Rfam assigns this 173-nucleotide sequence from Paenalkalicoccus suaedae to the family "Lysine riboswitch aptamer".
RNA sequence: UAGAAGGAUAGAGGCGCGGUGUAAAAAAGUACAGCAUGAUAGUCUGAGGAGGCGAUGAUCAUGUUAGAAAGGUUACAUUGCCGAAGGGGCGUGAAGUACCUCAUUUCACCUCCCUGGGGUCUGGUUUAAGAAGCCAGACACUGUCACUAUAGCAGUGGAGCACUAUCUUUCCG
Numbered sequence: 001u002a003g004a005a006g007g008a009u010a011g012a013g014g015c016g017c018g019g020u021g022u023a024a025a026a027a028a029g030u031a032c033a034g035c036a037u038g039a040u041a042g043u044c045u046g047a048g049g050a051g052g053c054g055a056u057g058a059u060c061a062u063g064u065u066a067g068a069a070a071g072g073u074u075a076c077a078u079u080g081c082c083g084a085a086g087g088g089g090c091g092u093g094a095a096g097u098a099c100c101u102c103a104u105u106u107c108a109c110c111u112c113c114c115u116g117g118g119g120u121c122u123g124g125u126u127u128a129a130g131a132a133g134c135c136a137g138a139c140a141c142u143g144u145c146a147c148u149a150u151a152g153c154a155g156u157g158g159a160g161c162a163c164u165a166u167c168u169u170u171c172c173g
Stems, first nucleotide, its partner, number of pairs: 006168006016081009033065007085115005091109006116142002119139008144158005

The source organism's lineage runs through Bacteria, Bacillati, Bacillota, Bacillaceae and Paenalkalicoccus. The base pairs follow the family's consensus structure, which is taken from published work.